[Rfam]
RNA sequence: GGAAUCCUGGUUUUCUCUGGUGCAUAGAUUAACGCUUUGAAUUUGUGUCUAGCACCAUUUGAAAUCAGUUUUCC
Numbered sequence: 001g002g003a004a005u006c007c008u009g010g011u012u013u014u015c016u017c018u019g020g021u022g023c024a025u026a027g028a029u030u031a032a033c034g035c036u037u038u039g040a041a042u043u044u045g046u047g048u049c050u051a052g053c054a055c056c057a058u059u060u061g062a063a064a065u066c067a068g069u070u071u072u073c074c
Stems, first nucleotide, its partner, number of pairs: 001074004007068008018057005025051004
This 74-nucleotide RNA sequence from Capitella teleta belongs to the Rfam family "mir-29 microRNA precursor family".
The family's consensus secondary structure was predicted with PFOLD.
Gene Ontology terms of the family: gene silencing by miRNA and RISC complex.
Rfam's curators write: This family represents the microRNA (miRNA) precursors mir-29.